[Rfam]
RNA sequence: CGACCUUGUGCGGGAGAGACCUCGGGAACCGACGCCGGUGACCCGGGGCGCCGAAGGAGCAAACUCCCCGGAAUCUCUCAGGCAACGGGUACCGCACGGGCGAG
Numbered sequence: 001c002g003a004c005c006u007u008g009u010g011c012g013g014g015a016g017a018g019a020c021c022u023c024g025g026g027a028a029c030c031g032a033c034g035c036c037g038g039u040g041a042c043c044c045g046g047g048g049c050g051c052c053g054a055a056g057g058a059g060c061a062a063a064c065u066c067c068c069c070g071g072a073a074u075c076u077c078u079c080a081g082g083c084a085a086c087g088g089g090u091a092c093c094g095c096a097c098g099g100g101c102g103a104g
Stems, first nucleotide, its partner, number of pairs: 006099008020048007050083003053079002057077003064070001
RNA: Glycine riboswitch aptamer
Organism: Sinosporangium album